PyrR binding site: a 149-nucleotide sequence from Thermobacillus composti.
RNA sequence: UGAACCUUUAAUUCAGUCCCGUGAGGCUGACAAGGUAACGGCAUAUCGGACAGGCACAGGCCUGACGGCGGCGCUACCCGUGCGCGCGCCGAGGGUCGUGGUGUGGUGCGGCCUGACUCCUUGCGGCUUUUCGCAAGGAGUUUUUUUGU
Numbered sequence: 001u002g003a004a005c006c007u008u009u010a011a012u013u014c015a016g017u018c019c020c021g022u023g024a025g026g027c028u029g030a031c032a033a034g035g036u037a038a039c040g041g042c043a044u045a046u047c048g049g050a051c052a053g054g055c056a057c058a059g060g061c062c063u064g065a066c067g068g069c070g071g072c073g074c075u076a077c078c079c080g081u082g083c084g085c086g087c088g089c090c091g092a093g094g095g096u097c098g099u100g101g102u103g104u105g106g107u108g109c110g111g112c113c114u115g116a117c118u119c120c121u122u123g124c125g126g127c128u129u130u131u132c133g134c135a136a137g138g139a140g141u142u143u144u145u146u147u148g149u
Stems, first nucleotide, its partner, number of pairs: 004036005013030006042073001044071001047068001049066001051064005115142012
NCBI's taxonomy places the organism under Bacteria, Bacillati, Bacilli, Caryophanales, Thermobacillus composti. A reference for the family is Bonner et al. (2001), "Molecular recognition of pyr mRNA by the Bacillus subtilis attenuation regulatory protein PyrR", Nucleic Acids Res. Its family is annotated with pyrimidine nucleobase transport and pyrimidine nucleobase biosynthetic process in the Gene Ontology.